[Rfam]
RNA sequence: UUUAGCCUUUGGGGUAGGGUUAAUUUCCCAACCGGCGGUAAAGUCCGCGAGCGUUAAGCAUGAACCGGUGCAAUUCCGGUACCGACAGUAAAGUCUGGAUGAGAAAAGGCAAAA
Number, nucleotide and partner (000 for none) at each position: 001u000002u000003u112004a000005g110006c109007c108008u107009u106010u105011g000012g000013g000014g000015u000016a000017g029018g028019g027020u000021u000022a000023a000024u000025u000026u000027c019028c018029c017030a000031a094032c093033c084034g083035g048036c047037g046038g045039u000040a000041a000042a000043g082044u081045c038046c037047g036048c035049g000050a000051g000052c000053g000054u000055u000056a000057a000058g000059c000060a000061u000062g000063a000064a080065c079066c078067g077068g076069u000070g000071c000072a000073a000074u000075u000076c068077c067078g066079g065080u064081a044082c043083c034084g033085a000086c097087a096088g095089u000090a000091a000092a000093g032094u031095c088096u087097g086098g000099a000100u000101g000102a000103g000104a000105a010106a009107a008108g007109g006110c005111a000112a003113a000114a000
RNA: FMN riboswitch aptamer (RFN element)